This 77-nucleotide RNA sequence from Xanthomonas oryzae belongs to the Rfam family "Xanthomonas sRNA sX9". For this family Rfam cites "Genome-wide transcriptome analysis of the plant pathogen Xanthomonas identifies sRNAs with putative virulence functions" (Schmidtke et al., Nucleic Acids Res, 2011). A search with the family's covariance model found it, with a score of 82 bits. Rfam classes the family as a small RNA.
[Rfam]
RNA sequence: AUGGACCACGCGUCCAAUGCGGUUCGGAGCGCGCCGUCCGCGCCCACCUGACAGCGGCUCGCUACGGUUUGUUAGCC
Numbered sequence: 001a002u003g004g005a006c007c008a009c010g011c012g013u014c015c016a017a018u019g020c021g022g023u024u025c026g027g028a029g030c031g032c033g034c035c036g037u038c039c040g041c042g043c044c045c046a047c048c049u050g051a052c053a054g055c056g057g058c059u060c061g062c063u064a065c066g067g068u069u070u071g072u073u074a075g076c077c
Stems, first nucleotide, its partner, number of pairs: 002016005020036004025031001048075007